[Rfam]
Shown here is a 67-nucleotide RNA from Cricetulus griseus, a member of the family "mir-290 microRNA precursor family".
For this family Rfam cites "Embryonic stem cell-specific MicroRNAs" (Houbaviy et al., Dev Cell, 2003).
The family is grouped with related families in Rfam's "mir-290 clan".
Taxonomically the source falls in Cricetulus (Eukaryota, Eumetazoa, Myomorpha, Cricetidae).
Rfam links the family to the GO terms miRNA-mediated post-transcriptional gene silencing and RISC complex.
RNA sequence: GUAGCGCUCAAAACUUGGUGGCACUUUAUUCCAGAACAAAAAAGUGCCCCCAUAGUUUGAGUACCAC
Numbered sequence: 001g002u003a004g005c006g007c008u009c010a011a012a013a014c015u016u017g018g019u020g021g022c023a024c025u026u027u028a029u030u031c032c033a034g035a036a037c038a039a040a041a042a043a044g045u046g047c048c049c050c051c052a053u054a055g056u057u058u059g060a061g062u063a064c065c066a067c
Base pairs, nucleotide, nucleotide: 004064006062007061008060009059010058011057012056016052017051018050020048021047022046023045024044025043026041027040
Dot-bracket structure: ...(.(((((((...(((.((((((((............)).)))))).)))...))))))).)...